[Rfam]
A member of the RNA family "RAGATH-25 RNA", 53 nucleotides long. The family's consensus secondary structure is taken from published work.
RNA sequence: UACAAAACAGCCGUUCGGCUGGUUGGCAAAAGUAAGUCCUCCGUUUCAGGAGA
Dot-bracket structure: .......(((((....))))).................((((......)))).
Numbered sequence: 001u002a003c004a005a006a007a008c009a010g011c012c013g014u015u016c017g018g019c020u021g022g023u024u025g026g027c028a029a030a031a032g033u034a035a036g037u038c039c040u041c042c043g044u045u046u047c048a049g050g051a052g053a
Stems, first nucleotide, its partner, number of pairs: 008021005039052004

Rfam's curators put it in the seed alignment.